The family of this 79-nucleotide sequence from Aquilegia coerulea is "MIR473 microRNA precursor family". It scores 56 bits against the family's covariance model. Rfam 15.1 lists 189 matches to the family in 90 species. The base pairs follow the family's consensus structure, which was predicted with WAR. For this family Rfam cites "Novel and mechanical stress-responsive MicroRNAs in Populus trichocarpa that are absent from Arabidopsis" (Lu et al., Plant Cell, 2005).
RNA sequence: AUUGUUUACUCUUCCUCAAAGGCUUCUAACAUUGCCAACUAUAUAUGGCAAGUUCGAAGUCUUUCAGGAGAGUGAACAA
Numbered sequence: 001a002u003u004g005u006u007u008a009c010u011c012u013u014c015c016u017c018a019a020a021g022g023c024u025u026c027u028a029a030c031a032u033u034g035c036c037a038a039c040u041a042u043a044u045a046u047g048g049c050a051a052g053u054u055c056g057a058a059g060u061c062u063u064u065c066a067g068g069a070g071a072g073u074g075a076a077c078a079a
Base pairs, nucleotide, nucleotide: 006075007074008073009072010071011070012069013068015067018064019063020062021061022060023059024058025057026056